[Rfam]
RNA: mir-1781 microRNA precursor family
Organism: Crypturellus undulatus
RNA sequence: ACAGCACAUUGUUAAACAGCUGAGUGAUUUAAAGAGAUCAAAUUCCUUUAGCUUUAAGUCAUGCAGCUGUUGAACAAGCUAUUGC
Numbered sequence: 001a002c003a004g005c006a007c008a009u010u011g012u013u014a015a016a017c018a019g020c021u022g023a024g025u026g027a028u029u030u031a032a033a034g035a036g037a038u039c040a041a042a043u044u045c046c047u048u049u050a051g052c053u054u055u056a057a058g059u060c061a062u063g064c065a066g067c068u069g070u071u072g073a074a075c076a077a078g079c080u081a082u083u084g085c
Base pairs, nucleotide, nucleotide: 002084003083004082006080009077010076011075012074013073015071016070017069018068019067020066021065022064024062025061026060027059028058029057030056031055032054033053034052